[Rfam]
RNA sequence: GACUGCUUGGCACUCGCGAACACCGCGAUCUUAUCAGAUAAAUCGCGGAGUUAGCCGGUGGCAACCAGGC
Numbered sequence: 001g002a003c004u005g006c007u008u009g010g011c012a013c014u015c016g017c018g019a020a021c022a023c024c025g026c027g028a029u030c031u032u033a034u035c036a037g038a039u040a041a042a043u044c045g046c047g048g049a050g051u052u053a054g055c056c057g058g059u060g061g062c063a064a065c066c067a068g069g070c
Base pairs, nucleotide, nucleotide: 003068004067005066007064008063009062011060012059013058016055017054019052020051021050023048024047025046026045027044028043